[Rfam]
RNA: tRNA
Organism: Mesomycoplasma neurolyticum
RNA sequence: GGAAGAUUAGCUCAGUUGGGAGAGCAUCGCCCUUACAAGGCGAGGGUCGUGGGUUCGAGCCCCUCAUCUUCCA
Numbered sequence: 001g002g003a004a005g006a007u008u009a010g011c012u013c014a015g016u017u018g019g020g021a022g023a024g025c026a027u028c029g030c031c032c033u034u035a036c037a038a039g040g041c042g043a044g045g046g047u048c049g050u051g052g053g054u055u056c057g058a059g060c061c062c063c064u065c066a067u068c069u070u071c072c073a
Base pairs, nucleotide, nucleotide: 001072002071003070004069005068006067007066010025011024012023013022027043028042029041030040031039049065051063052062053061